RNA sequence: AUAUAUUCUUCUUUGGUGAUCUAGUUGUAUGAGUGUUAAUUACUUCAUAAAGCUGGUUCAGCAAAGCAGAAAGUAU
Numbered sequence: 001a002u003a004u005a006u007u008c009u010u011c012u013u014u015g016g017u018g019a020u021c022u023a024g025u026u027g028u029a030u031g032a033g034u035g036u037u038a039a040u041u042a043c044u045u046c047a048u049a050a051a052g053c054u055g056g057u058u059c060a061g062c063a064a065a066g067c068a069g070a071a072a073g074u075a076u
Base pairs, nucleotide, nucleotide: 001076002075003074004073007070008069009068011066012065013064014063015062017060018059019058021056022055023054024053025052026051028049029048030047031046032045033044